[Rfam]
RNA sequence: GCUGGAGAUAGUGACGUAUCUCUGUAAUCCAAGUGUCUGGGAGGCUGAGGAUUGAGAAUCGGCUAUCGGUGGGAGUUCUGAGUAGCGUUGCAUCUAUGUUGAUCAGGCGUCCGUAUCAAGCUUGGCGUCAAUAUGGGCGAUUUCAGGUAACUAAAAUCGUCCAGGUUGUUCGAUAAAGAGGGGCGGAAUGGCUCAGAGUGGUAACACCGCAGGCAAAAGCUCCCGCGCCAAGCGGUGAUGGGAUCGCGUCAGUGAAUAGACAGCCGCUAUUCAGCCCAUUGGAUACGUUGAGACCUAUUCUUUU
Numbered sequence: 001g002c003u004g005g006a007g008a009u010a011g012u013g014a015c016g017u018a019u020c021u022c023u024g025u026a027a028u029c030c031a032a033g034u035g036u037c038u039g040g041g042a043g044g045c046u047g048a049g050g051a052u053u054g055a056g057a058a059u060c061g062g063c064u065a066u067c068g069g070u071g072g073g074a075g076u077u078c079u080g081a082g083u084a085g086c087g088u089u090g091c092a093u094c095u096a097u098g099u100u101g102a103u104c105a106g107g108c109g110u111c112c113g114u115a116u117c118a119a120g121c122u123u124g125g126c127g128u129c130a131a132u133a134u135g136g137g138c139g140a141u142u143u144c145a146g147g148u149a150a151c152u153a154a155a156a157u158c159g160u161c162c163a164g165g166u167u168g169u170u171c172g173a174u175a176a177a178g179a180g181g182g183g184c185g186g187a188a189u190g191g192c193u194c195a196g197a198g199u200g201g202u203a204a205c206a207c208c209g210c211a212g213g214c215a216a217a218a219g220c221u222c223c224c225g226c227g228c229c230a231a232g233c234g235g236u237g238a239u240g241g242g243a244u245c246g247c248g249u250c251a252g253u254g255a256a257u258a259g260a261c262a263g264c265c266g267c268u269a270u271u272c273a274g275c276c277c278a279u280u281g282g283a284u285a286c287g288u289u290g291a292g293a294c295c296u297a298u299u300c301u302u303u304u
Stems, first nucleotide, its partner, number of pairs: 001045003004023007028042003047302006054295001059291005066282008078274009087264004093260005099254001104252001106250005111242002114240005120233009129168004134163010145152002169178002180223005189216001191214003198207003
Rfam assigns this 304-nucleotide RNA sequence from Sarcoptes scabiei to the family "Metazoan signal recognition particle RNA". Rfam 15.1 lists 383,523 matches to the family in 1,221 species. Pairs were carried over by alignment from the consensus structure, which is taken from published work. A reference for the family is Wild et al. (2002), "Towards the structure of the mammalian signal recognition particle", Curr Opin Struct Biol. Its family is annotated with SRP-dependent cotranslational protein targeting to membrane, signal sequence recognition and signal recognition particle, endoplasmic reticulum targeting in the Gene Ontology. From the family's description: The signal recognition particle (SRP) is a universally conserved ribonucleoprotein. It is involved in the co-translational targeting of proteins to membranes. The eukaryotic SRP consists of a 300-nucleotide 7S RNA and six proteins: SRPs 72, 68, 54, 19, 14, and 9. Archaeal SRP consists of a 7S RNA and homologues of the eukaryotic SRP19 and SRP54 proteins.